[Rfam]
RNA sequence: AUACGUACUAUGCUGAAUCCUAUUUAAAAAAAUAGGUACGGAGGAACCAAGAAAUAGGGGUUAAUCUUUAAAUGUUUAAAGAAGGGAAAACCUUGACCUAACCCGUCAGCUAACUUCGGAAGCAAGAAAGGUGGAAAAA
Numbered sequence: 001a002u003a004c005g006u007a008c009u010a011u012g013c014u015g016a017a018u019c020c021u022a023u024u025u026a027a028a029a030a031a032a033u034a035g036g037u038a039c040g041g042a043g044g045a046a047c048c049a050a051g052a053a054a055u056a057g058g059g060g061u062u063a064a065u066c067u068u069u070a071a072a073u074g075u076u077u078a079a080a081g082a083a084g085g086g087a088a089a090a091c092c093u094u095g096a097c098c099u100a101a102c103c104c105g106u107c108a109g110c111u112a113a114c115u116u117c118g119g120a121a122g123c124a125a126g127a128a129a130g131g132u133g134g135a136a137a138a139a
Base pairs, nucleotide, nucleotide: 011124012123013122014121019036020035021034022033023032024031039118040117041116042115043114048057058104059103060102066081067080068079069078084098085097
Dot-bracket structure: ..........((((....((((((......))))))..(((((....(........)(((.....((((........))))..((...........))...))).........)))))..))))...............